S16-Flavobacteria ribosomal protein leader: a 34-nucleotide RNA sequence from unidentified eubacterium SCB49. For this family Rfam cites "Discovery of 20 novel ribosomal leader candidates in bacteria and archaea" (Eckert and Weinberg, BMC Microbiol, 2020). The family's consensus secondary structure is taken from published work.
RNA sequence: AUUAUAACCGAAGUCGAGUACUUCAAAAAGUAAU
Numbered sequence: 001a002u003u004a005u006a007a008c009c010g011a012a013g014u015c016g017a018g019u020a021c022u023u024c025a026a027a028a029a030g031u032a033a034u
Stems, first nucleotide, its partner, number of pairs: 001034004005029001010024005